[Rfam]
RNA sequence: AUAAUUGCGGGUGGGGCAUCAUCAAGAUCCACAUGAAAUAUAGAGGCUGUUUUCAGAUCUCUCUGGAUGUGAAUCUUGAUGAUGCUGCAUCAGCAAUAAG
Number, nucleotide and partner (000 for none) at each position: 001a000002u000003a000004a000005u000006u000007g000008c000009g000010g091011g090012u089013g088014g000015g086016g085017c084018a083019u082020c081021a080022u079023c078024a077025a076026g075027a074028u073029c000030c071031a000032c069033a068034u000035g000036a000037a000038a000039u000040a000041u000042a000043g000044a000045g000046g000047c000048u000049g000050u000051u000052u000053u000054c000055a000056g000057a000058u000059c000060u000061c000062u000063c000064u000065g000066g000067a000068u033069g032070u000071g030072a000073a028074u027075c026076u025077u024078g023079a022080u021081g020082a019083u018084g017085c016086u015087g000088c013089a012090u011091c010092a000093g000094c000095a000096a000097u000098a000099a000100g000
Shown here is a 100-nucleotide RNA from Dioscorea zingiberensis, a member of the family "mir-172 microRNA precursor family". Its family is annotated with miRNA-mediated post-transcriptional gene silencing and RISC complex in the Gene Ontology. Lineage of the source: Eukaryota > Streptophytina > Euphyllophyta > Dioscoreales > Dioscorea. On this family, see Jones-Rhoades and Bartel, Mol Cell 2004: "Computational Identification of Plant MicroRNAs and Their Targets, Including a Stress-Induced miRNA". mir-172 has been experimentally verified in Arabidopsis thaliana. This family is thought to target mRNAs coding for APETALA2-like transcription factors. The base pairs follow the family's consensus structure, which was predicted with PFOLD.